[Rfam]
The record is a 436-nucleotide RNA sequence from a Chlorobiales bacterium, which matches "Bacterial RNase P class A" in Rfam. A search with the family's covariance model found it, with a score of 203 bits. Lineage of the source: Bacteria > Pseudomonadati > Chlorobiota > Chlorobiia > Chlorobiales.
RNA sequence: AACUGUGCCAGUGGCAAUCGCCUGCGGACACCGGUUCGCGGGAGGAAAGUCCGAACACCGAAGGGCGGAGUGCCGGACAAGAUUUCGCUUCGGCGAAGUGCAAGUUCGGGAAGUGCGCUGCAAAGUGGGCUGACAGAGAGUGCAACAGAAAGCAAACCGUCCCGCGCCUGUUUUCAGGGGCGGGAUAAGGGUGAAACGGCGGUGUAAGAGACCACCAGUUGACGGAGCGAUCCGUCAAGCUCUGAAAACCUCGCUCGGUGCAAGGCUAUGUAAGAAACCGCGUUUCUUCGGAAACCGAACGCGGCCCGUGUGAGUGCCUGAGGCUUGGCUUCGGGCAACGGUUUCGGGUGAGCCGCAUCAGAUAAAUGAUUGCCUGCCGCUUCGUUCGCAAGAAUGAAAUGGCAAACAAAAUUCGGCUUACACGGCGCAGUUUCAA
Numbered sequence: 001a002a003c004u005g006u007g008c009c010a011g012u013g014g015c016a017a018u019c020g021c022c023u024g025c026g027g028a029c030a031c032c033g034g035u036u037c038g039c040g041g042g043a044g045g046a047a048a049g050u051c052c053g054a055a056c057a058c059c060g061a062a063g064g065g066c067g068g069a070g071u072g073c074c075g076g077a078c079a080a081g082a083u084u085u086c087g088c089u090u091c092g093g094c095g096a097a098g099u100g101c102a103a104g105u106u107c108g109g110g111a112a113g114u115g116c117g118c119u120g121c122a123a124a125g126u127g128g129g130c131u132g133a134c135a136g137a138g139a140g141u142g143c144a145a146c147a148g149a150a151a152g153c154a155a156a157c158c159g160u161c162c163c164g165c166g167c168c169u170g171u172u173u174u175c176a177g178g179g180g181c182g183g184g185a186u187a188a189g190g191g192u193g194a195a196a197c198g199g200c201g202g203u204g205u206a207a208g209a210g211a212c213c214a215c216c217a218g219u220u221g222a223c224g225g226a227g228c229g230a231u232c233c234g235u236c237a238a239g240c241u242c243u244g245a246a247a248a249c250c251u252c253g254c255u256c257g258g259u260g261c262a263a264g265g266c267u268a269u270g271u272a273a274g275a276a277a278c279c280g281c282g283u284u285u286c287u288u289c290g291g292a293a294a295c296c297g298a299a300c301g302c303g304g305c306c307c308g309u310g311u312g313a314g315u316g317c318c319u320g321a322g323g324c325u326u327g328g329c330u331u332c333g334g335g336c337a338a339c340g341g342u343u344u345c346g347g348g349u350g351a352g353c354c355g356c357a358u359c360a361g362a363u364a365a366a367u368g369a370u371u372g373c374c375u376g377c378c379g380c381u382u383c384g385u386u387c388g389c390a391a392g393a394a395u396g397a398a399a400u401g402g403c404a405a406a407c408a409a410a411a412u413u414c415g416g417c418u419u420a421c422a423c424g425g426c427g428c429a430g431u432u433u434c435a436a
Base pairs, nucleotide, nucleotide: 001432002431003430004429005428006427007426008425009424011421013374014373015372016371017370018369019368021042022041023040024039025038026037027036028035029034047419048418049417051416052415053414054413055412056260057259058258059257063331064330065329066328068256069255070254071253072252073109074108075107076106077105110134112131113130114129135251136250140249141248143244144243157190158189159186160185161184162183163182164181165180167178168177169176170175198216199215201213202212203211218240219238220237221236222235223234224233225232226231264354265353266352267351274345275344276343277342278341279340323336324335325334326333